c-di-AMP riboswitch aptamer (ydaO/yuaA leader): a 172-nucleotide sequence from Micromonospora siamensis. The pairing is the family consensus, mapped onto this sequence.
[Rfam]
RNA sequence: CGGACGGUAACGCCUAAUCCUGCCGCCGCCCGUGGUACCUGGACCUCAGGCAGAGAGCGGGGGACCCACACGUUCCUCGGUGCAUGACACCUCGGGGUGAAGCCGCCCAGUGCGGCCGGGCUCCUCGGCCCGAACCCGACAGCUCACCUCGUCGGCGUGGAGGAAACGACAG
Numbered sequence: 001c002g003g004a005c006g007g008u009a010a011c012g013c014c015u016a017a018u019c020c021u022g023c024c025g026c027c028g029c030c031c032g033u034g035g036u037a038c039c040u041g042g043a044c045c046u047c048a049g050g051c052a053g054a055g056a057g058c059g060g061g062g063g064a065c066c067c068a069c070a071c072g073u074u075c076c077u078c079g080g081u082g083c084a085u086g087a088c089a090c091c092u093c094g095g096g097g098u099g100a101a102g103c104c105g106c107c108c109a110g111u112g113c114g115g116c117c118g119g120g121c122u123c124c125u126c127g128g129c130c131c132g133a134a135c136c137c138g139a140c141a142g143c144u145c146a147c148c149u150c151g152u153c154g155g156c157g158u159g160g161a162g163g164a165a166a167c168g169a170c171a172g
Stems, first nucleotide, its partner, number of pairs: 011157004018056002057152006067094001095137003103115004118131004